[Rfam]
RNA sequence: CGAGUAAAAUGGCAAACUUGUUGAAAAGCAAGGACGCAAAGCUAUAGGGGCUAAUGUUAUACAAUGCCAGCCAGCUGCCUAU
Numbered sequence: 001c002g003a004g005u006a007a008a009a010u011g012g013c014a015a016a017c018u019u020g021u022u023g024a025a026a027a028g029c030a031a032g033g034a035c036g037c038a039a040a041g042c043u044a045u046a047g048g049g050g051c052u053a054a055u056g057u058u059a060u061a062c063a064a065u066g067c068c069a070g071c072c073a074g075c076u077g078c079c080u081a082u
Stems, first nucleotide, its partner, number of pairs: 012037002017032006040076004047072002049068003056062002
Overview
Shown here is an 82-nucleotide RNA sequence from Oceanobacillus limi, a member of the family "c-di-GMP-I riboswitch aptamer". Clan: c-di-GMP_I riboswitch clan. About the family: GEMM was predicted in a large-scale screen for bacterial structured RNA regulatory elements.